[Rfam]
RNA sequence: UUUUGCAAGUUUGAGGCCAUAACAGAAGUGCUCAUGGCACAGCCCUGUCAGAUUCCAACAAAUCUGAAAAAUCUGCU
Numbered sequence: 001u002u003u004u005g006c007a008a009g010u011u012u013g014a015g016g017c018c019a020u021a022a023c024a025g026a027a028g029u030g031c032u033c034a035u036g037g038c039a040c041a042g043c044c045c046u047g048u049c050a051g052a053u054u055c056c057a058a059c060a061a062a063u064c065u066g067a068a069a070a071a072u073c074u075g076c077u
Stems, first nucleotide, its partner, number of pairs: 013045001015044003021077001023075004028040003049066006

Shown here is a 77-nucleotide RNA from Alligator mississippiensis, a member of the family "Mammalian CPEB3 ribozyme". The match comes from Rfam's covariance-model search (48 bits). The base pairs follow the family's consensus structure, which is taken from published work.